Bacterial RNase P class A: a 354-nucleotide RNA.
Rfam classes the family as a ribozyme.
It scores 292 bits against the family's covariance model.
The base pairs follow the family's consensus structure, which is taken from published work.

RNA sequence: GAAGACUGGAAGAUGGCCGCCCGACACCAGUCGGGAGGAAAGUCCGAGCACCGCAGGGCAGGGCGCUGGGUAACACCCAGUCCCGGCGACGGGAAGGAAAGUGCCACAGAAAACAAACCGCCGGACUCCGGUCCGGUAAGGGUGAAAAGGCGAGGUAAGAGCUCACCGCGUCUCCGGUGACGGAGACGGCAUGGUAAACCCCGCCCGGUGCAAGACCAAAUAGGGAGGCUCGCAUUCGUGCGGAAGGCUGGCCCGGCCCACGCCUCCGGGUAAGGUCGCUAGAGUCCAGGGGCAACCCUGGUCCCAGAGUAAUGGCCAUCCUCGACAGAACUCGGCUUACGAAGGUCUUCCCCG
Numbered sequence: 001g002a003a004g005a006c007u008g009g010a011a012g013a014u015g016g017c018c019g020c021c022c023g024a025c026a027c028c029a030g031u032c033g034g035g036a037g038g039a040a041a042g043u044c045c046g047a048g049c050a051c052c053g054c055a056g057g058g059c060a061g062g063g064c065g066c067u068g069g070g071u072a073a074c075a076c077c078c079a080g081u082c083c084c085g086g087c088g089a090c091g092g093g094a095a096g097g098a099a100a101g102u103g104c105c106a107c108a109g110a111a112a113a114c115a116a117a118c119c120g121c122c123g124g125a126c127u128c129c130g131g132u133c134c135g136g137u138a139a140g141g142g143u144g145a146a147a148a149g150g151c152g153a154g155g156u157a158a159g160a161g162c163u164c165a166c167c168g169c170g171u172c173u174c175c176g177g178u179g180a181c182g183g184a185g186a187c188g189g190c191a192u193g194g195u196a197a198a199c200c201c202c203g204c205c206c207g208g209u210g211c212a213a214g215a216c217c218a219a220a221u222a223g224g225g226a227g228g229c230u231c232g233c234a235u236u237c238g239u240g241c242g243g244a245a246g247g248c249u250g251g252c253c254c255g256g257c258c259c260a261c262g263c264c265u266c267c268g269g270g271u272a273a274g275g276u277c278g279c280u281a282g283a284g285u286c287c288a289g290g291g292g293c294a295a296c297c298c299u300g301g302u303c304c305c306a307g308a309g310u311a312a313u314g315g316c317c318a319u320c321c322u323c324g325a326c327a328g329a330a331c332u333c334g335g336c337u338u339a340c341g342a343a344g345g346u347c348u349u350c351c352c353c354g
Stems, first nucleotide, its partner, number of pairs: 001350007012320007020035006040338003044335005049210004056254004061206005066080005081095001082093004096201002101199002103195003118141002120137007149167002152164003168190001169188008214277004224267006246258004284303001286301006